[Rfam]
RNA: Saccharopolyspora sRNA 350
Organism: Streptomyces inhibens
RNA sequence: UGAACGGCCAGGUCGCGUCGGCCGUGGUGAGCGGCUCGUCGCCGAGGUGGUCGCCGCCGGCCAGCGCCUCAAGCACCGUCUCGUCGUCGUAUUUGCCGGUGCCGAUACGGUCCACCCGGCCGUGCGCGAUCAGCACCAGCCGGUCGCCCGGUGUGCCGGCCUCGGCGAUCAGCUCGCCGGGUGCGUAUUCGUGCUGGGUGAACCGUCCGCCGAGCGCCGAGAGCACCUCGGGGUCGGUGAAAUCCUGUAGGGCCGGCAGCUCGCGCAGCUCGCCGGGGAUGAUCGAAACAUCGGAUCCGCUGAUAUCGAAUUCGAUACGGCCGUCGCCGAUGGUGUGCGUGAGCCGGCGGUUGACGCGAUAUGUGCCACCGGAAACCUGCACCCAGGGCAGCAAACGCAGCAGCCAACGGGACGUGAUGCCCUGCAUCUGCGGCGGGGUUUUGGUGGUGGUCGCCAAAUUCCGCGCGGCGGUGGUACUCAGGCUGGAAUUCUGGGCGUCUUCCG
Dot-bracket structure: ((.(......(......((((.(......(.((((..(...((((.((..((.(.((((((........((((.((.((......)).)).)))).....)))).....((.(..(..((.((((.((....(.(.....((...(((((((.((...((....))...))....))))))).))...))....)).))..)).))..)..).)))).).))..)).(....((((.(....(..((.((...((......)).....))))..)..).))))....)..))))...))))).)...)...)))).....)((((......))))........((((.((...(((.....))).)).)))).....).))..(((((((.((..(.(.(.......)).)...)).))))))).....((.(.(.((.((((((.......))))))..)).).).))((.(((.(((((.........))))).)))..)).